[Rfam]
Nucleotides: 098
Base pairs, nucleotide, nucleotide: 006086007085008084009083010082011050012049013048014047017026018025033044034043035042036041056079057078058077059076060073061072062071063070
Number, partner (000 for none) and nucleotide at each position: 001000g002000c003000c004000a005000u006086c007085a008084c009083a010082a011050a012049g013048g014047g015000g016000a017026g018025c019000c020000a021000u022000u023000g024000u025018g026017c027000u028000g029000a030000g031000a032000g033044u034043g035042a036041u037000u038000a039000a040000g041036a042035u043034c044033a045000g046000a047014c048013c049012c050011u051000u052000c053000g054000a055000a056079c057078c058077u059076g060073u061072u062071c063070g064000u065000u066000a067000a068000u069000a070063c071062g072061a073060g074000c075000g076059u077058a078057g079056g080000a081000a082010u083009u084008g085007u086006g087000a088000u089000g090000g091000a092000g093000u094000u095000u096000u097000u098000a
Shown here is a 98-nucleotide RNA from Lactobacillus selangorensis, a member of the family "TPP riboswitch aptamer (THI element)". The base pairs follow the family's consensus structure, which is taken from published work. About the family: Vitamin B(1) in its active form thiamin pyrophosphate (TPP) is an essential coenzyme that is synthesised by coupling of pyrimidine and thiazole moieties in bacteria. Rfam links the family to the GO term thiamine pyrophosphate binding.